[Rfam]
RNA: TPP riboswitch aptamer (THI element)
Organism: Lunatimonas lonarensis
RNA sequence: GUCGAUCAUUAGGGGUGCCCCAACAUUACGGGCUGAGAUCAUACCCAUAGAACCUGAUCCGGGUAGUGCCGGCGAAGGGAAAUGACUUAAGCCAAUA
Numbered sequence: 001g002u003c004g005a006u007c008a009u010u011a012g013g014g015g016u017g018c019c020c021c022a023a024c025a026u027u028a029c030g031g032g033c034u035g036a037g038a039u040c041a042u043a044c045c046c047a048u049a050g051a052a053c054c055u056g057a058u059c060c061g062g063g064u065a066g067u068g069c070c071g072g073c074g075a076a077g078g079g080a081a082a083u084g085a086c087u088u089a090a091g092c093c094a095a096u097a
Stems, first nucleotide, its partner, number of pairs: 006085005012046003016041001017033004053078003059072004